[Rfam]
RNA sequence: GGUAUCAGAGGAUGAAACCUUCAAACAAUCUUAGGACACCUUCUGACACAGUGCUUAUUUUCCUGUGAAUGAGAAGGCAUUUUAUUCUGAUGAUACA
Numbered sequence: 001g002g003u004a005u006c007a008g009a010g011g012a013u014g015a016a017a018c019c020u021u022c023a024a025a026c027a028a029u030c031u032u033a034g035g036a037c038a039c040c041u042u043c044u045g046a047c048a049c050a051g052u053g054c055u056u057a058u059u060u061u062c063c064u065g066u067g068a069a070u071g072a073g074a075a076g077g078c079a080u081u082u083u084a085u086u087c088u089g090a091u092g093a094u095a096c097a
Base pairs, nucleotide, nucleotide: 002096003095004094005093006092007091044050045049
Small nucleolar RNA snoR31/Z110/Z27: a 97-nucleotide RNA sequence from Triticum aestivum. The source organism's lineage runs through Eukaryota, Viridiplantae, Poaceae, Triticodae and Triticum. The family's consensus secondary structure was predicted with PFOLD. Gene Ontology terms of the family: RNA processing and nucleolus.